[Rfam]
RNA sequence: GCCGGCUAGCGAUCCGUCGAUGUUCGUUCAGAUGAUUCGGCGGGCAGCUUGAGGGAAACCAAAGCCUUCGGGU
Numbered sequence: 001g002c003c004g005g006c007u008a009g010c011g012a013u014c015c016g017u018c019g020a021u022g023u024u025c026g027u028u029c030a031g032a033u034g035a036u037u038c039g040g041c042g043g044g045c046a047g048c049u050u051g052a053g054g055g056a057a058a059c060c061a062a063a064g065c066c067u068u069c070g071g072g073u
Stems, first nucleotide, its partner, number of pairs: 001073003004066003008049003013044008022036003053060002
RNA: Eukaryotic small subunit ribosomal RNA, nucleotides 1208 to 1280